About this RNA:
This 105-nucleotide sequence from Virgibacillus necropolis belongs to the Rfam family "Glycine riboswitch aptamer". The literature on the family includes a 2004 paper in Science by Mandal et al., "A glycine-dependent riboswitch that uses cooperative binding to control gene expression".
[Rfam]
RNA sequence: AUGACCUUUGUGGGAGAGUUCGGAUUUAUUCCGUCACCGAAGGAGCAAAUUCCCAAAAAUAACCUUGGGCGUUAAUCUCUCAGGUCCAAAGACCACAAUGGGAAG
Numbered sequence: 001a002u003g004a005c006c007u008u009u010g011u012g013g014g015a016g017a018g019u020u021c022g023g024a025u026u027u028a029u030u031c032c033g034u035c036a037c038c039g040a041a042g043g044a045g046c047a048a049a050u051u052c053c054c055a056a057a058a059a060u061a062a063c064c065u066u067g068g069g070c071g072u073u074a075a076u077c078u079c080u081c082a083g084g085u086c087c088a089a090a091g092a093c094c095a096c097a098a099u100g101g102g103a104a105g
Stems, first nucleotide, its partner, number of pairs: 006100001008098006021033003036085003039081002043079003049072002